[Rfam]
Notes:
A member of the RNA family "c-di-GMP-I riboswitch aptamer" from Aneurinibacillus danicus, 86 nucleotides long. The match comes from Rfam's covariance-model search (90 bits).
RNA sequence: AUUCGAUAAAGGCAAACCUAUUGAAAAAUAGGGACGCAAAGCCAUGGGUCUAAGGUUUCUAAUAACUAUGACAGCCGGUUGCCGAA
Numbered sequence: 001a002u003u004c005g006a007u008a009a010a011g012g013c014a015a016a017c018c019u020a021u022u023g024a025a026a027a028a029u030a031g032g033g034a035c036g037c038a039a040a041g042c043c044a045u046g047g048g049u050c051u052a053a054g055g056u057u058u059c060u061a062a063u064a065a066c067u068a069u070g071a072c073a074g075c076c077g078g079u080u081g082c083c084g085a086a
Stems, first nucleotide, its partner, number of pairs: 012037002017032006040080004046076002048072003055066003
The base pairs follow the family's consensus structure, which is taken from published work.